A member of the RNA family "c-di-GMP-I riboswitch aptamer" from Paenibacillus prosopidis, 95 nucleotides long.
The match comes from Rfam's covariance-model search (78 bits).
The family has 155 seed sequences and 5,092 matches in Rfam 15.1.

[Rfam]
RNA sequence: UUUCGAUAAAGGCAAAGUUCUCGAAAGGGAAUGACGCAAAGUCAUGGGUCUAAGGUCUAGAGUGAAGUCUAGAUGAUGAUCGCCAGACUGCCGAA
Number, nucleotide and partner (000 for none) at each position: 001u000002u000003u000004c000005g000006a000007u000008a000009a000010a000011g000012g037013c036014a000015a000016a000017g032018u031019u030020c029021u028022c027023g000024a000025a000026a000027g022028g021029g020030a019031a018032u017033g000034a000035c000036g013037c012038a000039a000040a089041g088042u087043c086044a000045u085046g084047g083048g080049u079050c078051u000052a000053a000054g000055g074056u073057c072058u071059a070060g069061a068062g000063u000064g000065a000066a000067g000068u061069c060070u059071a058072g057073a056074u055075g000076a000077u000078g050079a049080u048081c000082g000083c047084c046085a045086g043087a042088c041089u040090g000091c000092c000093g000094a000095a000